Shown here is a 167-nucleotide RNA from Carpinus fangiana, a member of the family "Small nucleolar RNA snR80".
It scores 49 bits against the family's covariance model.
Gene Ontology terms of the family: nucleolus and RNA processing.
Clan: SNORA28 clan.
It is annotated as an H/ACA-box small nucleolar RNA.

RNA sequence: AAACCUUUGCCAACACUCUGGCCCAUACCACCGGUUCUCUCGCGGGCUGGAUAAAGUUUACGGUACGGGCCUAUUUUGGUGCAAAGGAGAGGAAAAGACCCAUUACUCACCGCGGCGCCCUGUGCCUUUGGCGUGGGCGCGGUGGUCCAUCUUUUUGAGGUCGAUAU
Numbered sequence: 001a002a003a004c005c006u007u008u009g010c011c012a013a014c015a016c017u018c019u020g021g022c023c024c025a026u027a028c029c030a031c032c033g034g035u036u037c038u039c040u041c042g043c044g045g046g047c048u049g050g051a052u053a054a055a056g057u058u059u060a061c062g063g064u065a066c067g068g069g070c071c072u073a074u075u076u077u078g079g080u081g082c083a084a085a086g087g088a089g090a091g092g093a094a095a096a097g098a099c100c101c102a103u104u105a106c107u108c109a110c111c112g113c114g115g116c117g118c119c120c121u122g123u124g125c126c127u128u129u130g131g132c133g134u135g136g137g138c139g140c141g142g143u144g145g146u147c148c149a150u151c152u153u154u155u156u157g158a159g160g161u162c163g164a165u166a167u
Stems, first nucleotide, its partner, number of pairs: 007084003020071005026065004097162004110145004115140006